[Rfam]
RNA sequence: UCGGAGGAAGCCGAAAAUCCGGAAAGAGUAGGCG
Numbered sequence: 001u002c003g004g005a006g007g008a009a010g011c012c013g014a015a016a017a018u019c020c021g022g023a024a025a026g027a028g029u030a031g032g033c034g
Stems, first nucleotide, its partner, number of pairs: 002021004010033003